RNA: Eukaryotic large subunit ribosomal RNA, nucleotides 1055 to 1556
RNA sequence: CCUGCCGAAGUUUCCCUCAGGAUAGCAGAAGCUCAAAGGCAGUUUUAUGGGGUAAAGCGAAUGAUUAGAGGCCUUGGGGGCGAAAAGCCCUUAACCUAUUCUCAAACUUUAAAUAUGUAAGACGCCAGGUUUUCUUAAUUGAAGCCAUGGCUAUGAAUGUCGAGUUUCUAGUGGGCCAUUUUUGGUAAGCAGAACUGGCGAUGCGGGAUGAACCGAACGUGAAGUUAAGGUGCCGGAAUACACGCUCAUCAGACACCACAAAAGGUGUUAGUUCAUCUAGACAGCAGGACGGUGGCCAUGGAAGUCGGAAACCGCUAAGGAGUGUGUAACAACUCACCUGCCGAAUGAACUAGCCCUGAAAAUGGAUGGCGCUUAAGCGUGUUACCCAUACUUCACCGUCAUGGUAAAAGCGAAGCCAUGACGAGUAGGCAGGCGUGGAGGUUUAUUAAACUGUUAAGAAGCAUUUGGUGUGAACCUAUGUGAAACAGCCUCUAGUGCAGAU
Numbered sequence: 001c002c003u004g005c006c007g008a009a010g011u012u013u014c015c016c017u018c019a020g021g022a023u024a025g026c027a028g029a030a031g032c033u034c035a036a037a038g039g040c041a042g043u044u045u046u047a048u049g050g051g052g053u054a055a056a057g058c059g060a061a062u063g064a065u066u067a068g069a070g071g072c073c074u075u076g077g078g079g080g081c082g083a084a085a086a087g088c089c090c091u092u093a094a095c096c097u098a099u100u101c102u103c104a105a106a107c108u109u110u111a112a113a114u115a116u117g118u119a120a121g122a123c124g125c126c127a128g129g130u131u132u133u134c135u136u137a138a139u140u141g142a143a144g145c146c147a148u149g150g151c152u153a154u155g156a157a158u159g160u161c162g163a164g165u166u167u168c169u170a171g172u173g174g175g176c177c178a179u180u181u182u183u184g185g186u187a188a189g190c191a192g193a194a195c196u197g198g199c200g201a202u203g204c205g206g207g208a209u210g211a212a213c214c215g216a217a218c219g220u221g222a223a224g225u226u227a228a229g230g231u232g233c234c235g236g237a238a239u240a241c242a243c244g245c246u247c248a249u250c251a252g253a254c255a256c257c258a259c260a261a262a263a264g265g266u267g268u269u270a271g272u273u274c275a276u277c278u279a280g281a282c283a284g285c286a287g288g289a290c291g292g293u294g295g296c297c298a299u300g301g302a303a304g305u306c307g308g309a310a311a312c313c314g315c316u317a318a319g320g321a322g323u324g325u326g327u328a329a330c331a332a333c334u335c336a337c338c339u340g341c342c343g344a345a346u347g348a349a350c351u352a353g354c355c356c357u358g359a360a361a362a363u364g365g366a367u368g369g370c371g372c373u374u375a376a377g378c379g380u381g382u383u384a385c386c387c388a389u390a391c392u393u394c395a396c397c398g399u400c401a402u403g404g405u406a407a408a409a410g411c412g413a414a415g416c417c418a419u420g421a422c423g424a425g426u427a428g429g430c431a432g433g434c435g436u437g438g439a440g441g442u443u444u445a446u447u448a449a450a451c452u453g454u455u456a457a458g459a460a461g462c463a464u465u466u467g468g469u470g471u472g473a474a475c476c477u478a479u480g481u482g483a484a485a486c487a488g489c490c491u492c493u494a495g496u497g498c499a500g501a502u
Stems, first nucleotide, its partner, number of pairs: 001433006011024001013022003027169007043122007055110001056108002062104003067099001069097003074094006081087001124151004128146005175199004180194005204215003219396005225390001229386003238383001240382001243379003263357003267354010284341005290314003296308002315319001320335001324333002397423009434497001436494008446485001461481002467476003